A member of the RNA family "epsC RNA" from Mesobacillus subterraneus, 115 nucleotides long. NCBI's taxonomy places the organism under Bacteria, Bacillati, Bacillota, Bacillaceae, Mesobacillus. Pairs were carried over by alignment from the consensus structure, which is taken from published work. Rfam 15.1 lists 450 matches to the family in 334 species.
[Rfam]
RNA sequence: CGGUGAUGUCUCCUAGCCGUUAUCUAAGGAGGCACUCGGUCAUGCUGUGGGUUAUAAAAAGACCUUAGACGCUCUGGUCGUCGAGAGUAUGAUGUGAGGAGGGGUUAAAUGCCCU
Numbered sequence: 001c002g003g004u005g006a007u008g009u010c011u012c013c014u015a016g017c018c019g020u021u022a023u024c025u026a027a028g029g030a031g032g033c034a035c036u037c038g039g040u041c042a043u044g045c046u047g048u049g050g051g052u053u054a055u056a057a058a059a060a061g062a063c064c065u066u067a068g069a070c071g072c073u074c075u076g077g078u079c080g081u082c083g084a085g086a087g088u089a090u091g092a093u094g095u096g097a098g099g100a101g102g103g104g105u106u107a108a109a110u111g112c113c114c115u
Base pairs, nucleotide, nucleotide: 001019002018003017004016007034008033009032010031011030012029013028035098036097037096038095039093040092041091042090043089044088045087046086049065050064051063052062053061068082069081070080071079101115102114103113104112105111